Background
The family of this 99-nucleotide RNA sequence from Gallibacterium salpingitidis is "Glycine riboswitch aptamer". The source organism's lineage runs through Bacteria, Pseudomonadota, Gammaproteobacteria, Pasteurellales and Gallibacterium. This family represents the bacterial glycine riboswitch. A search with the family's covariance model found it, with a score of 71 bits.
RNA sequence: GGACGAACCCUUGGAGAGAUCCGUCAUAAACGGACGCCGAAGGCGCAAGAGAAUAGCUUUAUUCUUGAAACGCUCAGGCAAAAGGACAGGGGCAGGAAA
Numbered sequence: 001g002g003a004c005g006a007a008c009c010c011u012u013g014g015a016g017a018g019a020u021c022c023g024u025c026a027u028a029a030a031c032g033g034a035c036g037c038c039g040a041a042g043g044c045g046c047a048a049g050a051g052a053a054u055a056g057c058u059u060u061a062u063u064c065u066u067g068a069a070a071c072g073c074u075c076a077g078g079c080a081a082a083a084g085g086a087c088a089g090g091g092g093c094a095g096g097a098a099a
Base pairs, nucleotide, nucleotide: 008092009091010090011089012088013087020034021033022032023031036079037078038077039075040074043073044072045071049066050065051064052063053062054061055060